The record is a 101-nucleotide sequence from Anisodus acutangulus, which matches "Small nucleolar RNA Z43" in Rfam. The source organism's lineage runs through Eukaryota, Tracheophyta, Mesangiospermae, Solanoideae and Anisodus. The literature on the family includes a 2003 paper in Nucleic Acids Res by Chen et al., "The high diversity of snoRNAs in plants: identification and comparative study of 120 snoRNA genes from Oryza sativa".
RNA sequence: GGACAGUGACGACUUAUAUCAACUGGUCUCGUUCGUCGUAAUGGUGUUAAAAAAACACCUUGACGACCAUACUGAUAUAUCACCACCCAUAAACUGAGUCC
Numbered sequence: 001g002g003a004c005a006g007u008g009a010c011g012a013c014u015u016a017u018a019u020c021a022a023c024u025g026g027u028c029u030c031g032u033u034c035g036u037c038g039u040a041a042u043g044g045u046g047u048u049a050a051a052a053a054a055a056c057a058c059c060u061u062g063a064c065g066a067c068c069a070u071a072c073u074g075a076u077a078u079a080u081c082a083c084c085a086c087c088c089a090u091a092a093a094c095u096g097a098g099u100c101c
Stems, first nucleotide, its partner, number of pairs: 001101004046061001
Dot-bracket structure: ((((.........................................(..............)....................................))))